Rfam assigns this 61-nucleotide sequence from Python bivittatus to the family "Selenocysteine insertion sequence 1". By type it is a cis-regulatory element. It scores 40 bits against the family's covariance model. The family's consensus secondary structure is taken from published work.
RNA sequence: AUGGCGUUUAUGAUGUGACUAGAUUAAAGCUUUCAGAGUGUGUAGUUGCUGAUGUUGCCAU
Numbered sequence: 001a002u003g004g005c006g007u008u009u010a011u012g013a014u015g016u017g018a019c020u021a022g023a024u025u026a027a028a029g030c031u032u033u034c035a036g037a038g039u040g041u042g043u044a045g046u047u048g049c050u051g052a053u054g055u056u057g058c059c060a061u
Stems, first nucleotide, its partner, number of pairs: 001061005015049007023041002030038003